Rfam assigns this 61-nucleotide RNA sequence from Eucalyptus grandis to the family "Plastid-psbN 5UTR RNA". Plastid psbN is a non-coding RNA (ncRNA) recognised in plastids. It was reported as a conserved 11 stem-loop in the prime untranslated region (5UTR) of psbN genes. It has been reported that the motif is retained in a subset of mature transcripts in barley, which can suggests a possible role in transcript alternative 5 prime processing. NCBI's taxonomy places the organism under Eukaryota, Streptophytina, Embryophyta, Euphyllophyta, Eucalyptus. The literature on the family includes a 2023 paper in Plant Commun by Richter et al., "Retrograde signaling in plants: A critical review focusing on the GUN pathway and beyond".

[Rfam]
RNA sequence: CAGAGCACCUGUAAAAGAAGUAGCUCCCCGUCCAAGAGCUACUUUACCAUAUUCUGAAUUA
Numbered sequence: 001c002a003g004a005g006c007a008c009c010u011g012u013a014a015a016a017g018a019a020g021u022a023g024c025u026c027c028c029c030g031u032c033c034a035a036g037a038g039c040u041a042c043u044u045u046a047c048c049a050u051a052u053u054c055u056g057a058a059u060u061a
Base pairs, nucleotide, nucleotide: 017045018044019043020042021041022040023039024038025037026036